[Rfam]
RNA: Plant signal recognition particle RNA
Organism: Hibiscus syriacus
Nucleotides: 301
Base pairs, nucleotide, nucleotide: 001040002039003038004023005022006021007020008019009018010017028037029036030035044300045299046298047297048296050294051293052292053291056288057287058285059284060283061281063279064278065277066276068274069273072270073269075267076266077265078259079258080257081256085252087251088250089249090248093246100243101242102241103240104239105238107233108232110231111230112229113228114227116225117224118222119221120220121219125165126164127163129161130160131159132158133157135155136154137153138152139150140149141148142147166171173215174214175213176212178210182208184206186205191200192199193198
Number, partner (000 for none) and nucleotide at each position: 001040g002039c003038u004023g005022a006021g007020c008019u009018u010017u011000g012000u013000a014000a015000c016000g017010g018009g019008a020007g021006c022005u023004u024000g025000u026000g027000a028037c029036c030035u031000g032000a033000g034000u035030g036029g037028g038003g039002g040001c041000a042000c043000u044300a045299g046298g047297a048296u049000u050294g051293u052292g053291g054000g055000a056288c057287a058285u059284g060283g061281g062000u063279u064278u065277g066276g067000c068274u069273u070000u071000c072270u073269g074000a075267g076266u077265u078259g079258g080257a081256u082000c083000c084000c085252a086000c087251g088250u089249g090248g091000c092000u093246u094000u095000g096000u097000a098000a099000u100243g101242g102241c103240u104239u105238a106000c107233u108232c109000a110231u111230u112229u113228c114227a115000a116225g117224c118222a119221a120220g121219a122000g123000u124000u125165g126164a127163g128000a129161c130160a131159u132158g133157g134000g135155a136154c137153c138152u139150c140149a141148g142147u143000g144000a145000a146000a147142a148141c149140u150139g151000u152138g153137g154136g155135u156000g157133u158132c159131g160130u161129g162000g163127c164126u165125c166171c167000u168000a169000c170000a171166g172000c173215g174214a175213a176212g177000g178210c179000c180000a181000u182208u183000g184206c185000g186205u187000g188000a189000g190000g191200u192199u193198g194000g195000u196000u197000u198193c199192a200191g201000a202000g203000c204000a205186a206184g207000a208182a209000a210178g211000a212176c213175u214174u215173c216000c217000u218000g219121u220120c221119u222118u223000g224117g225116c226000a227114u228113g229112g230111g231110a232108g233107g234000a235000u236000a237000a238105u239104a240103a241102g242101c243100u244000u245000g246093a247000u248090c249089c250088a251087c252085u253000a254000a255000c256081a257080u258079c259078c260000a261000g262000c263000a264000u265077g266076a267075c268000c269073c270072a271000c272000u273069g274068a275000g276066u277065c278064g279063g280000c281061c282000u283060u284059c285058a286000u287057u288056g289000g290000a291053c292052c293051g294050u295000u296048a297047u298046c299045u300044u301000u